About this RNA: The record is a 139-nucleotide RNA from Betta splendens, which matches "Small nucleolar RNA U109" in Rfam. Pairs were carried over by alignment from the consensus structure, which was predicted with WAR. The family has 26 seed sequences and 1,405 matches in Rfam 15.1. The match comes from Rfam's covariance-model search (52 bits). Rfam links the family to the GO terms nucleolus and RNA processing. On this family, see Gu et al., Nucleic Acids Res 2005: "A novel experimental approach for systematic identification of box H/ACA snoRNAs from eukaryotes".
RNA sequence: GAGCAUGUAAAACCAAUGUCUACUCCUUAAACCAUUGGGAGGGACUAUAUAUGAAAACAUGCCAGAGUAACACUUGGGGUUUUCAGGGCCAUUGAUCUUGUAGAACUGGUCACUUGGUAGUAUUAAGACUCCAACAGAG
Numbered sequence: 001g002a003g004c005a006u007g008u009a010a011a012a013c014c015a016a017u018g019u020c021u022a023c024u025c026c027u028u029a030a031a032c033c034a035u036u037g038g039g040a041g042g043g044a045c046u047a048u049a050u051a052u053g054a055a056a057a058c059a060u061g062c063c064a065g066a067g068u069a070a071c072a073c074u075u076g077g078g079g080u081u082u083u084c085a086g087g088g089c090c091a092u093u094g095a096u097c098u099u100g101u102a103g104a105a106c107u108g109g110u111c112a113c114u115u116g117g118u119a120g121u122a123u124u125a126a127g128a129c130u131c132c133a134a135c136a137g138a139g
Stems, first nucleotide, its partner, number of pairs: 003062006019043002023041004076132004088118002093112005